The record is a 207-nucleotide RNA from Paenalicyclobacillus cellulosilyticus, which matches "Bacterial large signal recognition particle RNA" in Rfam. The match comes from Rfam's covariance-model search (99 bits). On this family, see Rosenblad et al., Nucleic Acids Res 2003: "SRPDB: Signal Recognition Particle Database". The source organism's lineage runs through Bacteria, Bacillati, Bacillota, Alicyclobacillaceae and Paenalicyclobacillus. Rfam classes the family as a non-coding RNA gene.
RNA sequence: CUGCAAGGGGCUCGUGGGUUCGAAUCCCACUCUCUCCGCCAAAGCGAAGCGCGCGGGCGCGCCUUGCGCCCAGGAACCAAUUGGGUCCCAUGCGGCGGGAACUUCCGAACCGUGUCAGGUCCUGACGGAAGCAGCACUAAGGAAGACCUCCCGGGCGACGUGGGCGCGCCUGAUUGGUUCUUGGUCGCAAGGCGCGUCUUUUUGCGG
Numbered sequence: 001c002u003g004c005a006a007g008g009g010g011c012u013c014g015u016g017g018g019u020u021c022g023a024a025u026c027c028c029a030c031u032c033u034c035u036c037c038g039c040c041a042a043a044g045c046g047a048a049g050c051g052c053g054c055g056g057g058c059g060c061g062c063c064u065u066g067c068g069c070c071c072a073g074g075a076a077c078c079a080a081u082u083g084g085g086u087c088c089c090a091u092g093c094g095g096c097g098g099g100a101a102c103u104u105c106c107g108a109a110c111c112g113u114g115u116c117a118g119g120u121c122c123u124g125a126c127g128g129a130a131g132c133a134g135c136a137c138u139a140a141g142g143a144a145g146a147c148c149u150c151c152c153g154g155g156c157g158a159c160g161u162g163g164g165c166g167c168g169c170c171u172g173a174u175u176g177g178u179u180c181u182u183g184g185u186c187g188c189a190a191g192g193c194g195c196g197u198c199u200u201u202u203u204g205c206g207g
Stems, first nucleotide, its partner, number of pairs: 001207007008052001010050002014030005020024001035048001037046003053200001055198002058196010070184006078176009087164006093155001096153005102145005112137004120129003